[Rfam]
Rfam assigns this 63-nucleotide sequence to the family "Pseudomonas sRNA P26". Rfam describes the family as follows. This small RNA (sRNA) was computationally identified in the genome of the opportunistic pathogen Pseudomonas aeruginosa and its expression verified by northern blot analysis. P26 is conserved across many Gammaproteobacteria species and appears to be consistently located between the DNA directed RNA polymerase (beta subunit) and 50S ribosomal protein L7/L12 genes.

RNA sequence: UGCUCUCCUUCUGCGGCUCUGCACAGUUUGCAGCUGAAGGCUGGUGGCUUGUGCAACCAGCCU
Numbered sequence: 001u002g003c004u005c006u007c008c009u010u011c012u013g014c015g016g017c018u019c020u021g022c023a024c025a026g027u028u029u030g031c032a033g034c035u036g037a038a039g040g041c042u043g044g045u046g047g048c049u050u051g052u053g054c055a056a057c058c059a060g061c062c063u
Base pairs, nucleotide, nucleotide: 014036015035016034017033018032022030023029039062040061041060042059043058044057045056047054048053

For this family Rfam cites "Identification of 17 Pseudomonas aeruginosa sRNAs and prediction of sRNA-encoding genes in 10 diverse pathogens using the bioinformatic tool sRNAPredict2" (Livny et al., Nucleic Acids Res, 2006).